Rfam assigns this 117-nucleotide RNA to the family "FMN riboswitch aptamer (RFN element)".

[Rfam]
RNA sequence: AUCUGUCUUCAGGGCGAGGGUUGUUUCCUCACCGGCAGUUAAAGUCUGCGAGCCUUUUUGGUUGAAUUGGUGAAAUUCCAAUACCGACAGUUAAAGUCUGGAUGAAAGAAGAUUUGA
Numbered sequence: 001a002u003c004u005g006u007c008u009u010c011a012g013g014g015c016g017a018g019g020g021u022u023g024u025u026u027c028c029u030c031a032c033c034g035g036c037a038g039u040u041a042a043a044g045u046c047u048g049c050g051a052g053c054c055u056u057u058u059u060g061g062u063u064g065a066a067u068u069g070g071u072g073a074a075a076u077u078c079c080a081a082u083a084c085c086g087a088c089a090g091u092u093a094a095a096g097u098c099u100g101g102a103u104g105a106a107a108g109a110a111g112a113u114u115u116g117a
Stems, first nucleotide, its partner, number of pairs: 005113006017029003031097002033086002035049004044084002052062003066082005088100003
The base pairs follow the family's consensus structure, which is taken from published work.
A search with the family's covariance model found it, with a score of 98 bits.